[Rfam]
The family of this 353-nucleotide part of an RNA from Paraburkholderia saeva is "Bacterial small subunit ribosomal RNA". The family's consensus secondary structure is taken from published work. The source organism's lineage runs through Bacteria, Pseudomonadati, Betaproteobacteria, Burkholderiales and Paraburkholderia.
RNA sequence: GGCGUAAAGCGUGCGCAGGCGGUUCGUUAAGACAGAUGUGAAAUCCCCGGGCUUAACCUGGGAACUGCAUUUGUGACUGGCGGGCUAGAGUAUGGCAGAGGGGGGUAGAAUUCCACGUGUAGCAGUGAAAUGCGUAGAGAUGUGGAGGAAUACCGAUGGCGAAGGCAGCCCCCUGGGCCAAUACUGACGCUCAUGCACGAAAGCGUGGGGAGCAAACAGGAUUAGAUACCCUGGUAGUCCACGCCCUAAACGAUGUCAACUAGUUGUUGGGGAUUCAUUUCCUUAGUAACGUAGCUAACGCGUGAAGUUGACCGCCUGGGGAGUACGGUCGCAAGAUUAAAACUCAAAGGAAU
Numbered sequence: 001g002g003c004g005u006a007a008a009g010c011g012u013g014c015g016c017a018g019g020c021g022g023u024u025c026g027u028u029a030a031g032a033c034a035g036a037u038g039u040g041a042a043a044u045c046c047c048c049g050g051g052c053u054u055a056a057c058c059u060g061g062g063a064a065c066u067g068c069a070u071u072u073g074u075g076a077c078u079g080g081c082g083g084g085c086u087a088g089a090g091u092a093u094g095g096c097a098g099a100g101g102g103g104g105g106u107a108g109a110a111u112u113c114c115a116c117g118u119g120u121a122g123c124a125g126u127g128a129a130a131u132g133c134g135u136a137g138a139g140a141u142g143u144g145g146a147g148g149a150a151u152a153c154c155g156a157u158g159g160c161g162a163a164g165g166c167a168g169c170c171c172c173c174u175g176g177g178c179c180a181a182u183a184c185u186g187a188c189g190c191u192c193a194u195g196c197a198c199g200a201a202a203g204c205g206u207g208g209g210g211a212g213c214a215a216a217c218a219g220g221a222u223u224a225g226a227u228a229c230c231c232u233g234g235u236a237g238u239c240c241a242c243g244c245c246c247u248a249a250a251c252g253a254u255g256u257c258a259a260c261u262a263g264u265u266g267u268u269g270g271g272g273a274u275u276c277a278u279u280u281c282c283u284u285a286g287u288a289a290c291g292u293a294g295c296u297a298a299c300g301c302g303u304g305a306a307g308u309u310g311a312c313c314g315c316c317u318g319g320g321g322a323g324u325a326c327g328g329u330c331g332c333a334a335g336a337u338u339a340a341a342a343c344u345c346a347a348a349g350g351a352a353u
Stems, first nucleotide, its partner, number of pairs: 001316003009313001011198004018191003022085007030078002032074009046062006089185003093180004100174007107151001111147008122133003159166002203244006212238002217233004255312006263290011294301002318345003327338004